[Rfam]
RNA: Gammaproteobacterial sRNA STnc100
Organism: Salmonella enterica
RNA sequence: CCAUGUAAAUUAUCAUGUUAUGGCAAUGAUGUUGCGGUGAAUCCCGUUAGCACGGGGCAAACUGAUCAUAUACUUCUGUUAACCAAUGUCGCAGCAGACGCCAUAGCGGGUCAUGGCAGGUUAACCAAAGGCUCACCGGAAAGUACCCGGCACCGUAACACUCCAGUGAAAGCGGGUAAUUAAUCAAAGGUUCACUACGGUGGGCCUUUUCUGUAUAC
Numbered sequence: 001c002c003a004u005g006u007a008a009a010u011u012a013u014c015a016u017g018u019u020a021u022g023g024c025a026a027u028g029a030u031g032u033u034g035c036g037g038u039g040a041a042u043c044c045c046g047u048u049a050g051c052a053c054g055g056g057g058c059a060a061a062c063u064g065a066u067c068a069u070a071u072a073c074u075u076c077u078g079u080u081a082a083c084c085a086a087u088g089u090c091g092c093a094g095c096a097g098a099c100g101c102c103a104u105a106g107c108g109g110g111u112c113a114u115g116g117c118a119g120g121u122u123a124a125c126c127a128a129a130g131g132c133u134c135a136c137c138g139g140a141a142a143g144u145a146c147c148c149g150g151c152a153c154c155g156u157a158a159c160a161c162u163c164c165a166g167u168g169a170a171a172g173c174g175g176g177u178a179a180u181u182a183a184u185c186a187a188a189g190g191u192u193c194a195c196u197a198c199g200g201u202g203g204g205c206c207u208u209u210u211c212u213g214u215a216u217a218c
Stems, first nucleotide, its partner, number of pairs: 014166001016165002031159002034156006045057001047055002066096001100107002108134004114128001116126001136150004176218002179216002186209009